[Rfam]
RNA: Small nucleolar RNA SNORA81
Organism: Synaphobranchus kaupii
RNA sequence: UCCUUCUUGCUAAAGCACUCCGCUAAAAUUGCGAGAUUAAAGCCCUCGGCUCUGGUCUCACGAUGGUGUCAGCCGGAAUACACCCGAGAAGGAGAACAACCACACGGCAUCUGCAACGGGACGAGGACGGACCUCUUUCUUAAUGUCCAGUGUCUGCCGUCUCGAGGUGGCUGUGUAACAUUU
Numbered sequence: 001u002c003c004u005u006c007u008u009g010c011u012a013a014a015g016c017a018c019u020c021c022g023c024u025a026a027a028a029u030u031g032c033g034a035g036a037u038u039a040a041a042g043c044c045c046u047c048g049g050c051u052c053u054g055g056u057c058u059c060a061c062g063a064u065g066g067u068g069u070c071a072g073c074c075g076g077a078a079u080a081c082a083c084c085c086g087a088g089a090a091g092g093a094g095a096a097c098a099a100c101c102a103c104a105c106g107g108c109a110u111c112u113g114c115a116a117c118g119g120g121a122c123g124a125g126g127a128c129g130g131a132c133c134u135c136u137u138u139c140u141u142a143a144u145g146u147c148c149a150g151u152g153u154c155u156g157c158c159g160u161c162u163c164g165a166g167g168u169g170g171c172u173g174u175g176u177a178a179c180a181u182u183u
Base pairs, nucleotide, nucleotide: 019077021075022073023072024071028067029066030065031064034058035057037055038054039053041051042050043049044048102176103175104174105173106172107171108170109168124153126151129148130147131146